[Rfam]
RNA sequence: AGGCGUGAUGAAUUUCUCAGGAAUCUCGUUCGGCUGAAGGAUGCUGUUGAGGAUUCGGAUUCUGAUCCCU
Numbered sequence: 001a002g003g004c005g006u007g008a009u010g011a012a013u014u015u016c017u018c019a020g021g022a023a024u025c026u027c028g029u030u031c032g033g034c035u036g037a038a039g040g041a042u043g044c045u046g047u048u049g050a051g052g053a054u055u056c057g058g059a060u061u062c063u064g065a066u067c068c069c070u
Stems, first nucleotide, its partner, number of pairs: 024052005031046004
RNA: Small nucleolar RNA SNORD30